[Rfam]
RNA sequence: AAGACUAUACUUUCAGGGAUCAUUUCUAUAGUUUCUGAUUUGAGAAAUGUGUUUCUAAAGUGUUUGGUCUCACUAACCACGAUGAUGAGUCGUGAUAUUUCCUUCUGAGCGUGAAGCUGACAGAGAAUAACGAUUCAGUACAUAUGUUCUCUGUCAUUGAUGACCGUUCAUUGUUCCUUAAUGGAUCGUUGAGGAAGGGAAUAUGAUCAGAGUGGU
Numbered sequence: 001a002a003g004a005c006u007a008u009a010c011u012u013u014c015a016g017g018g019a020u021c022a023u024u025u026c027u028a029u030a031g032u033u034u035c036u037g038a039u040u041u042g043a044g045a046a047a048u049g050u051g052u053u054u055c056u057a058a059a060g061u062g063u064u065u066g067g068u069c070u071c072a073c074u075a076a077c078c079a080c081g082a083u084g085a086u087g088a089g090u091c092g093u094g095a096u097a098u099u100u101c102c103u104u105c106u107g108a109g110c111g112u113g114a115a116g117c118u119g120a121c122a123g124a125g126a127a128u129a130a131c132g133a134u135u136c137a138g139u140a141c142a143u144a145u146g147u148u149c150u151c152u153g154u155c156a157u158u159g160a161u162g163a164c165c166g167u168u169c170a171u172u173g174u175u176c177c178u179u180a181a182u183g184g185a186u187c188g189u190u191g192a193g194g195a196a197g198g199g200a201a202u203a204u205g206a207u208c209a210g211a212g213u214g215g216u
Base pairs, nucleotide, nucleotide: 001041002040003039005037007034009032010031011030015027016026017025018024051064055062076216077215078214079213080212095204096203097202098201099200100199101198102197103196104195105194106193109167110166111165119155120154121153122152125149126148127147128146130143132141170190175185176184177183
Source information:
A member of the RNA family "Small nucleolar RNA U3" from Dicentrarchus labrax, 216 nucleotides long. Pairs were carried over by alignment from the consensus structure, which is taken from published work. Rfam 15.1 lists 19,072 matches to the family in 1,215 species. From the family's description: Small nucleolar RNAs (snoRNAs) are involved in the processing and modification of rRNA in the nucleolus. There are two main classes of snoRNAs: the box C/D class, and the box H/ACA class. U3 snoRNA is a member of the box C/D class. Indeed, the box C/D element is a subset of the six short sequence elements found in all U3 snoRNAs, namely boxes A, A', B, C, C', and D. The U3 snoRNA secondary structure is characterised by a small 5' domain (with boxes A and A'), and a larger 3' domain (with boxes B, C, C', and D), the two domains being linked by a single-stranded hinge. Boxes B and C form the B/C motif, which appears to be exclusive to U3 snoRNAs, and boxes C' and D form the C'/D motif. The latter is functionally similar to the C/D motifs found in other snoRNAs. The 5' domain and the hinge region act as a pre-rRNA-binding domain. The 3' domain has conserved protein-binding sites. Both the box B/C and box C'/D motifs are sufficient for nuclear retention of U3 snoRNA. The box C'/D motif is also necessary for nucleolar localisation, stability and hyper-methylation of U3 snoRNA. Both box B/C and C'/D motifs are involved in specific protein interactions and are necessary for the rRNA processing functions of U3 snoRNA. The family's RNA type in Rfam is C/D-box small nucleolar RNA. The literature on the family includes a 1997 paper in Nucleic Acids Res by Zwieb, "The uRNA database". A search with the family's covariance model found it, with a score of 159 bits.